[Rfam]
The record is a 134-nucleotide RNA from Paenibacillus sp. FSL R5-0912, which matches "c-di-AMP riboswitch aptamer (ydaO/yuaA leader)" in Rfam. The pairing is the family consensus, mapped onto this sequence.
RNA sequence: AAUACUUAAUCGCUGAAUUCCUUAUAGGAAGCGGGGGAACCAGGUUAUAUGGGGUGAAUCUCGGAUAAACGAGUAGGGCUACUUUCAGGGCCCGAAUCCGGCAGCUAACCCCGCAAGCGUUCAUGAGAGGAUGC
Numbered sequence: 001a002a003u004a005c006u007u008a009a010u011c012g013c014u015g016a017a018u019u020c021c022u023u024a025u026a027g028g029a030a031g032c033g034g035g036g037g038a039a040c041c042a043g044g045u046u047a048u049a050u051g052g053g054g055u056g057a058a059u060c061u062c063g064g065a066u067a068a069a070c071g072a073g074u075a076g077g078g079c080u081a082c083u084u085u086c087a088g089g090g091c092c093c094g095a096a097u098c099c100g101g102c103a104g105c106u107a108a109c110c111c112c113g114c115a116a117g118c119g120u121u122c123a124u125g126a127g128a129g130g131a132u133g134c
Stems, first nucleotide, its partner, number of pairs: 011119004018030003031114006041051002052099003060073004076093004